Small nucleolar RNA SNORA77: a 130-nucleotide RNA from Cyprinodon variegatus. Rfam links the family to the GO terms nucleolus and RNA processing. A search with the family's covariance model found it, with a score of 54 bits. ACA63 (SNORA77) is a member of the H/ACA class of snoRNAs that guide the sites of modification of uridines to pseudouridines. This snoRNA was identified by computational screening and its expression in mouse experimentally verified by Northern blot and primer extension analysis. Rfam classes the family as an H/ACA-box small nucleolar RNA.

RNA sequence: GCAGACACACUCUGUUCUUUGCUGCUUACUCCAGCCUGGGACUUUUUCUGUCUGCUAAAUAAACACGCAGGAUGUAACACUGCUAGCUUUCCAUAAAGCCAGCGGUGGUCACUUUUUCUGCUACAUUUUA
Numbered sequence: 001g002c003a004g005a006c007a008c009a010c011u012c013u014g015u016u017c018u019u020u021g022c023u024g025c026u027u028a029c030u031c032c033a034g035c036c037u038g039g040g041a042c043u044u045u046u047u048c049u050g051u052c053u054g055c056u057a058a059a060u061a062a063a064c065a066c067g068c069a070g071g072a073u074g075u076a077a078c079a080c081u082g083c084u085a086g087c088u089u090u091c092c093a094u095a096a097a098g099c100c101a102g103c104g105g106u107g108g109u110c111a112c113u114u115u116u117u118c119u120g121c122u123a124c125a126u127u128u129u130a
Base pairs, nucleotide, nucleotide: 001055002054003053004052005051006050014042015041016040017039018038022034023033024032067121068120069119070118071117072116074113079106080105081104082103083102